RT-17 RNA: a 96-nucleotide RNA sequence from Muribaculaceae bacterium Isolate-037.
RNA sequence: GACCGCACCCCAAGGUGAAAGACAACGAUGACAGGAAGUGCCGGUAGGCCUGGCGCAAGCCAUCCCCGACGGCAGUACCCGGGAAAAAGCAGACAG
Numbered sequence: 001g002a003c004c005g006c007a008c009c010c011c012a013a014g015g016u017g018a019a020a021g022a023c024a025a026c027g028a029u030g031a032c033a034g035g036a037a038g039u040g041c042c043g044g045u046a047g048g049c050c051u052g053g054c055g056c057a058a059g060c061c062a063u064c065c066c067c068g069a070c071g072g073c074a075g076u077a078c079c080c081g082g083g084a085a086a087a088a089g090c091a092g093a094c095a096g
Stems, first nucleotide, its partner, number of pairs: 006017004039074003047067001051062003
Pairs were carried over by alignment from the consensus structure, which is taken from published work.